[Rfam]
RNA sequence: AGAUGCAAAUUCGAGGCCAUGGCAGAAGCGCUCAUGACGCAACCUGUCAGAUUCCAAUGAAAUCUCUGAAUUCUGCU
Numbered sequence: 001a002g003a004u005g006c007a008a009a010u011u012c013g014a015g016g017c018c019a020u021g022g023c024a025g026a027a028g029c030g031c032u033c034a035u036g037a038c039g040c041a042a043c044c045u046g047u048c049a050g051a052u053u054c055c056a057a058u059g060a061a062a063u064c065u066c067u068g069a070a071u072u073c074u075g076c077u
Stems, first nucleotide, its partner, number of pairs: 015044002021077007028040003049065005
Rfam assigns this 77-nucleotide RNA sequence from Alligator mississippiensis to the family "Mammalian CPEB3 ribozyme". Lineage of the source: Eukaryota > Opisthokonta > Craniata > Sauria > Alligator. The match comes from Rfam's covariance-model search (42 bits).